[Rfam]
RNA sequence: CCUAGCUGUGAUGACACACUUGCCCUCACUGAGAGCUCUGCUCGUUAAUGAGAACCUCUUUUGUACUCAUCUGAUCUGAGCCAGG
Numbered sequence: 001c002c003u004a005g006c007u008g009u010g011a012u013g014a015c016a017c018a019c020u021u022g023c024c025c026u027c028a029c030u031g032a033g034a035g036c037u038c039u040g041c042u043c044g045u046u047a048a049u050g051a052g053a054a055c056c057u058c059u060u061u062u063g064u065a066c067u068c069a070u071c072u073g074a075u076c077u078g079a080g081c082c083a084g085g
Stems, first nucleotide, its partner, number of pairs: 001085003005081002
Shown here is an 85-nucleotide RNA sequence from Megalops atlanticus, a member of the family "Small nucleolar RNA SNORD103/SNORD85". On this family, see Huttenhofer et al., EMBO J 2001: "RNomics: an experimental approach that identifies 201 candidates for novel, small, non-messenger RNAs in mouse". A search with the family's covariance model found it, with a score of 72 bits. Rfam links the family to the GO terms RNA processing and nucleolus. Lineage of the source: Eukaryota > Metazoa > Actinopteri > Megalopidae > Megalops. Pairs were carried over by alignment from the consensus structure.